[Rfam]
Rfam assigns this 199-nucleotide RNA sequence from Miscanthus lutarioriparius to the family "MIR1435 microRNA precursor family". Lineage of the source: Eukaryota > Magnoliopsida > Mesangiospermae > Poaceae > Miscanthus. The family has 3 seed sequences and 1,765 matches in Rfam 15.1. The match comes from Rfam's covariance-model search (112 bits).
RNA sequence: UAGAGUUGUCCUGAGUCAAACUAUUUUAAGUUUGACCAACUUUAUAGAAAAGAACACUAACAUGUAUGACAUCAAACAAGUAUAUUUGAAAAUAUAUUUCAUGUUGUAUCUAAUAAUACAAAUUUGGUGUCAUAAACACUGGUGCGCUUUUUAAUAAAUUCAGUCAAACCUAAAAAUGUUUGACUUAGGACAACUUUAG
Number, nucleotide and partner (000 for none) at each position: 001u000002a000003g000004a000005g194006u193007u192008g191009u190010c000011c188012u187013g186014a185015g184016u183017c182018a181019a180020a179021c178022u000023a177024u176025u175026u174027u000028a000029a000030g000031u168032u167033u166034g165035a164036c000037c000038a000039a000040c000041u000042u000043u000044a000045u154046a000047g152048a151049a150050a149051a148052g147053a000054a000055c144056a143057c142058u000059a140060a000061c000062a000063u136064g000065u134066a133067u132068g131069a000070c000071a000072u127073c126074a125075a124076a123077c000078a000079a000080g000081u000082a000083u000084a000085u000086u000087u000088g000089a000090a000091a000092a000093u000094a000095u000096a000097u000098u000099u000100c000101a000102u000103g000104u000105u000106g000107u000108a000109u000110c000111u000112a000113a000114u000115a000116a000117u000118a000119c000120a000121a000122a000123u076124u075125u074126g073127g072128u000129g000130u000131c068132a067133u066134a065135a000136a063137c000138a000139c000140u059141g000142g057143u056144g055145c000146g000147c052148u051149u050150u049151u048152u047153a000154a045155u000156a000157a000158a000159u000160u000161c000162a000163g000164u035165c034166a033167a032168a031169c000170c000171u000172a000173a000174a026175a025176a024177u023178g021179u020180u019181u018182g017183a016184c015185u014186u013187a012188g011189g000190a009191c008192a007193a006194c005195u000196u000197u000198a000199g000